[Rfam]
A member of the RNA family "glmS glucosamine-6-phosphate activated ribozyme aptamer" from Natronincola peptidivorans, 166 nucleotides long. This entry contains a glucosamine-6-phosphate activated ribozyme that is found in the mRNA for GlmS. GlmS is an enzyme that uses fructose-6-phosphate and glutamine to generate glucosamine-6-phosphate. A search with the family's covariance model found it, with a score of 116 bits. The organism belongs to Natronincola, within Bacteria. Rfam classes the family as a riboswitch. The base pairs follow the family's consensus structure, which is taken from published work.

RNA sequence: CUAAAUAAAAAAGCGCCUGAACUUAGACUUUAAAUGAAAGUCUAAGUUGACGAGGGACAGGGUUUAUCGAAUGUUCGGCGGAUGCCCUGCGGUGUAUUCACCACCGAUAAUGGACCUACAAACCUACUAAGUGAUUAGUAAAACAAAAUGGUCUUGGUGAAGGUCU
Numbered sequence: 001c002u003a004a005a006u007a008a009a010a011a012a013g014c015g016c017c018u019g020a021a022c023u024u025a026g027a028c029u030u031u032a033a034a035u036g037a038a039a040g041u042c043u044a045a046g047u048u049g050a051c052g053a054g055g056g057a058c059a060g061g062g063u064u065u066a067u068c069g070a071a072u073g074u075u076c077g078g079c080g081g082a083u084g085c086c087c088u089g090c091g092g093u094g095u096a097u098u099c100a101c102c103a104c105c106g107a108u109a110a111u112g113g114a115c116c117u118a119c120a121a122a123c124c125u126a127c128u129a130a131g132u133g134a135u136u137a138g139u140a141a142a143a144c145a146a147a148a149u150g151g152u153c154u155u156g157g158u159g160a161a162g163g164u165c166u
Stems, first nucleotide, its partner, number of pairs: 020048008029039001058089005067078004090106005112154005125140006